[Rfam]
RNA: Small nucleolar RNA Me28S-Gm1083
RNA sequence: UGUUUCUAGAUGAUGAGCAUUAAGCUUUCGCCCCUAUCUGAAACCUAAGAGAAACUUCUCAUGUUGAAUGCGAGGAUUGGUCUUACUGAAAAUUGAUU
Numbered sequence: 001u002g003u004u005u006c007u008a009g010a011u012g013a014u015g016a017g018c019a020u021u022a023a024g025c026u027u028u029c030g031c032c033c034c035u036a037u038c039u040g041a042a043a044c045c046u047a048a049g050a051g052a053a054a055c056u057u058c059u060c061a062u063g064u065u066g067a068a069u070g071c072g073a074g075g076a077u078u079g080g081u082c083u084u085a086c087u088g089a090a091a092a093u094u095g096a097u098u
Stems, first nucleotide, its partner, number of pairs: 001095001002093003